This 352-nucleotide RNA from Dokdonella sp. belongs to the Rfam family "transfer-messenger RNA".
Lineage of the source: Bacteria > Gammaproteobacteria > Lysobacterales > Rhodanobacteraceae > Dokdonella.
RNA sequence: GGGGGCGACAUGGUUUCGACGGGGGACGCAAAGUAGCUUGGAGCAUGCCGAGGGCGUCAUCUUCCUCGUUAAUCCGAUGGCAAAAAACUAGACGCGAACGACGACGUCUACGCUCUGGCCGCUUAAGGCCUAGCCCCGAACCCACUUGUGCUCGUGCUCGUGGAUGUAGGGUCAUUAUCACGAGAUCGCCCGCGCCGGCGCCUUUCGGUGGCGGGUCAAAUCCAAGAGGCUGGUCCUGCGGUGCGCUUGGCACGCUGUGUUGCCGCAGGAUGAGAUCAAACAGCGUGACAAGCAUGUAGCGCCGGGCGCGGAGCGCCUUCGGACGCGGGUUCAAUUCCCGCCGCCUCCACCA
Numbered sequence: 001g002g003g004g005g006c007g008a009c010a011u012g013g014u015u016u017c018g019a020c021g022g023g024g025g026a027c028g029c030a031a032a033g034u035a036g037c038u039u040g041g042a043g044c045a046u047g048c049c050g051a052g053g054g055c056g057u058c059a060u061c062u063u064c065c066u067c068g069u070u071a072a073u074c075c076g077a078u079g080g081c082a083a084a085a086a087a088c089u090a091g092a093c094g095c096g097a098a099c100g101a102c103g104a105c106g107u108c109u110a111c112g113c114u115c116u117g118g119c120c121g122c123u124u125a126a127g128g129c130c131u132a133g134c135c136c137c138g139a140a141c142c143c144a145c146u147u148g149u150g151c152u153c154g155u156g157c158u159c160g161u162g163g164a165u166g167u168a169g170g171g172u173c174a175u176u177a178u179c180a181c182g183a184g185a186u187c188g189c190c191c192g193c194g195c196c197g198g199c200g201c202c203u204u205u206c207g208g209u210g211g212c213g214g215g216u217c218a219a220a221u222c223c224a225a226g227a228g229g230c231u232g233g234u235c236c237u238g239c240g241g242u243g244c245g246c247u248u249g250g251c252a253c254g255c256u257g258u259g260u261u262g263c264c265g266c267a268g269g270a271u272g273a274g275a276u277c278a279a280a281c282a283g284c285g286u287g288a289c290a291a292g293c294a295u296g297u298a299g300c301g302c303c304g305g306g307c308g309c310g311g312a313g314c315g316c317c318u319u320c321g322g323a324c325g326c327g328g329g330u331u332c333a334a335u336u337c338c339c340g341c342c343g344c345c346u347c348c349a350c351c352a
Base pairs, nucleotide, nucleotide: 001348002347003346004345005344006343007342020321021320022319023318024317025316036307037306038305039304040303041302043300044296045295046294047293048292049068050067051066052065053064056081057080058079059078060077061076115133116132118129119128120127135171136170137169139167142163143162144161145160148157151184152183153182154181155180156179189215190214191213192212193211200231202229203228204227205226233271234270235269236268237267238266239265240264241263242262244259245258246257251287252286325341326340327339328338329337